[Rfam]
RNA: SAM riboswitch aptamer (S box leader)
Organism: Halalkalibacillus sediminis
RNA sequence: UUCUUAUCAAGAGUGGUGGAGGGAUCUGGCCCUAUGAAACCCGGCAACCAUCGGACAUUGUUCCGGAAGGUGCUAAUUCCAGCAAUGGUGUUAACCGUUGCAAGAUGAGAA
Numbered sequence: 001u002u003c004u005u006a007u008c009a010a011g012a013g014u015g016g017u018g019g020a021g022g023g024a025u026c027u028g029g030c031c032c033u034a035u036g037a038a039a040c041c042c043g044g045c046a047a048c049c050a051u052c053g054g055a056c057a058u059u060g061u062u063c064c065g066g067a068a069g070g071u072g073c074u075a076a077u078u079c080c081a082g083c084a085a086u087g088g089u090g091u092u093a094a095c096c097g098u099u100g101c102a103a104g105a106u107g108a109g110a111a
Stems, first nucleotide, its partner, number of pairs: 001111008013042001015041003021032003026082004043074004048070002051066004078103001083100006